[Rfam]
RNA: Rhodo-rpoB RNA
RNA sequence: GGCUCGGGAGCGGUCCUACGGGACGGACCGCAUGAAUAGAGCCUUCCCCUCCUUCGCCAGCGGCGAAUGACUGCGACCCGACGGUCAUUUG
Numbered sequence: 001g002g003c004u005c006g007g008g009a010g011c012g013g014u015c016c017u018a019c020g021g022g023a024c025g026g027a028c029c030g031c032a033u034g035a036a037u038a039g040a041g042c043c044u045u046c047c048c049c050u051c052c053u054u055c056g057c058c059a060g061c062g063g064c065g066a067a068u069g070a071c072u073g074c075g076a077c078c079c080g081a082c083g084g085u086c087a088u089u090u091g
Stems, first nucleotide, its partner, number of pairs: 001043005010031007064091010